[Rfam]
RNA sequence: AAACAGCCCCCUAUGUUUUGAUUGUUUGGCAGUUUUGGACCCCCAGUCCAUUGUUGACUCGAUCGAUGCUGACGUGGCACCCUAAGUGAGGUGCCACGUGUCUUUUUUUUUUUUUUUUUCCUUGGGGGUCCAAAACUGCCAAAGAAUCAAAACAUAGGGGGCUGUUU
Numbered sequence: 001a002a003a004c005a006g007c008c009c010c011c012u013a014u015g016u017u018u019u020g021a022u023u024g025u026u027u028g029g030c031a032g033u034u035u036u037g038g039a040c041c042c043c044c045a046g047u048c049c050a051u052u053g054u055u056g057a058c059u060c061g062a063u064c065g066a067u068g069c070u071g072a073c074g075u076g077g078c079a080c081c082c083u084a085a086g087u088g089a090g091g092u093g094c095c096a097c098g099u100g101u102c103u104u105u106u107u108u109u110u111u112u113u114u115u116u117u118u119u120c121c122u123u124g125g126g127g128g129u130c131c132a133a134a135a136c137u138g139c140c141a142a143a144g145a146a147u148c149a150a151a152a153c154a155u156a157g158g159g160g161g162c163u164g165u166u167u
Stems, first nucleotide, its partner, number of pairs: 001167002004164005012156012025143021072099002075096007
A member of the RNA family "MIR2619 microRNA precursor family" from Medicago truncatula, 167 nucleotides long. NCBI's taxonomy places the organism under Eukaryota, Euphyllophyta, Gunneridae, Pentapetalae, Medicago. A search with the family's covariance model found it, with a score of 121 bits. The family's consensus secondary structure was predicted with RNAalifold.